The record is a 121-nucleotide RNA from Peptoniphilus indolicus, which matches "FMN riboswitch aptamer (RFN element)" in Rfam. Gene Ontology term of the family: FMN binding. The match comes from Rfam's covariance-model search (120 bits). The base pairs follow the family's consensus structure, which is taken from published work.

RNA sequence: AAGUAUCUUCAGGGCAAGGUGAAAUUCCUGACCGGCGGUAAAGUCCGCGAAUCCUUUUAAAUAGGAUUGAACUUGUGAAAUUCAAGUACCGACAGUAAAGUCUGGAUGAAAGAAGAAAUUG
Numbered sequence: 001a002a003g004u005a006u007c008u009u010c011a012g013g014g015c016a017a018g019g020u021g022a023a024a025u026u027c028c029u030g031a032c033c034g035g036c037g038g039u040a041a042a043g044u045c046c047g048c049g050a051a052u053c054c055u056u057u058u059a060a061a062u063a064g065g066a067u068u069g070a071a072c073u074u075g076u077g078a079a080a081u082u083c084a085a086g087u088a089c090c091g092a093c094a095g096u097a098a099a100g101u102c103u104g105g106a107u108g109a110a111a112g113a114a115g116a117a118a119u120u121g
Stems, first nucleotide, its partner, number of pairs: 003119002006116005017029003031101002033091002035048004043089002051067003071087005093104003